Shown here is a 63-nucleotide RNA sequence from Manganibacter manganicus, a member of the family "Fluoride riboswitch aptamer (crcB RNA motif)". A search with the family's covariance model found it, with a score of 61 bits. Taxonomically the source falls in Manganibacter (Bacteria, Alphaproteobacteria, Hyphomicrobiales, Phyllobacteriaceae). The family's consensus secondary structure is taken from published work.
RNA sequence: UGGAAACAAGGGGAUGGGGUUCCCCAAAACCGCCCGACAAGGGCUGAUGACUCCUGCUGUGUG
Dot-bracket structure: .........[[[[..((((((]]]]......((((.....))))....)))))).........